[Rfam]
RNA sequence: GCGGCGCGCCAGUAACUCCACCUAGUACGAGAGGAACAGUGGACUCGGAUACUUGGUUAAUGCGGUUGGCUGAAGAGCCAGUGCCGCGACGCUACCAUCCGUCGGAUAAUGACUGAACGCCUCUAAGUCAGAAUCCGUGCUGUACCGCCGCCACACACCGCCCGUGCGCUUUUGCUGCGCCAUAUUUUUUUGCUUCUCCGAAUCUUAACUCUAAUCGCACGGGCGAUACAUGCUCUGUAGACGACUUUGCCGCACCCGGGUAUUGUAAGCGCGAGAGUGGGCUUGACUUGCGAUCCGCUGAGAUUUAUCCCGGCGUGCUACAUGUGU
Dot-bracket structure: ((((((...((((.(.(((((.................))))).)(((((...(((....(((((((((((....))))))..)))))...)))..))))).(((....(((((...........)))))....))).))))...))))))........(((((((...................................................)))))))...((((((...(.......)...)...(((.((((.((.....(((..(..(((((.....)))))..).)))....))....))).).)))...)))))..
Numbered sequence: 001g002c003g004g005c006g007c008g009c010c011a012g013u014a015a016c017u018c019c020a021c022c023u024a025g026u027a028c029g030a031g032a033g034g035a036a037c038a039g040u041g042g043a044c045u046c047g048g049a050u051a052c053u054u055g056g057u058u059a060a061u062g063c064g065g066u067u068g069g070c071u072g073a074a075g076a077g078c079c080a081g082u083g084c085c086g087c088g089a090c091g092c093u094a095c096c097a098u099c100c101g102u103c104g105g106a107u108a109a110u111g112a113c114u115g116a117a118c119g120c121c122u123c124u125a126a127g128u129c130a131g132a133a134u135c136c137g138u139g140c141u142g143u144a145c146c147g148c149c150g151c152c153a154c155a156c157a158c159c160g161c162c163c164g165u166g167c168g169c170u171u172u173u174g175c176u177g178c179g180c181c182a183u184a185u186u187u188u189u190u191u192g193c194u195u196c197u198c199c200g201a202a203u204c205u206u207a208a209c210u211c212u213a214a215u216c217g218c219a220c221g222g223g224c225g226a227u228a229c230a231u232g233c234u235c236u237g238u239a240g241a242c243g244a245c246u247u248u249g250c251c252g253c254a255c256c257c258g259g260g261u262a263u264u265g266u267a268a269g270c271g272c273g274a275g276a277g278u279g280g281g282c283u284u285g286a287c288u289u290g291c292g293a294u295c296c297g298c299u300g301a302g303a304u305u306u307a308u309c310c311c312g313g314c315g316u317g318c319u320a321c322a323u324g325u326g327u
Stems, first nucleotide, its partner, number of pairs: 001151006010142004015045001017043005046101005054094003061088005066081006103137003110130005160224007228325005233249001237245001253317003257313001258311003262304002269298003274294001277291005
The family of this 327-nucleotide part of an RNA from Babesia bovis is "Eukaryotic large subunit ribosomal RNA". Lineage of the source: Eukaryota > Apicomplexa > Piroplasmida > Babesiidae > Babesia. Rfam links the family to the GO terms ribosome and structural constituent of ribosome. The family's consensus secondary structure is taken from published work. It is one of the family's seed sequences.